This 74-nucleotide sequence from Synaphobranchus kaupii belongs to the Rfam family "mir-122 microRNA precursor family".

RNA sequence: CAGAGCUGUGGAGUGUGACAAUGGUGUUUGUGUCCAGUGUUAUCAAACGCCAUUAUCACACUAAGUAGCUAUGG
Numbered sequence: 001c002a003g004a005g006c007u008g009u010g011g012a013g014u015g016u017g018a019c020a021a022u023g024g025u026g027u028u029u030g031u032g033u034c035c036a037g038u039g040u041u042a043u044c045a046a047a048c049g050c051c052a053u054u055a056u057c058a059c060a061c062u063a064a065g066u067a068g069c070u071a072u073g074g
Stems, first nucleotide, its partner, number of pairs: 012062007020054011

The family's consensus secondary structure was predicted with RNAalifold. On this family, see Sempere et al., Genome Biol 2004: "Expression profiling of mammalian microRNAs uncovers a subset of brain-expressed microRNAs with possible roles in murine and human neuronal differentiation". The family has 32 seed sequences and 666 matches in Rfam 15.1. It scores 92 bits against the family's covariance model. Rfam links the family to the GO terms RISC complex and miRNA-mediated post-transcriptional gene silencing. The source organism's lineage runs through Eukaryota, Craniata, Teleostei, Elopocephala and Synaphobranchus.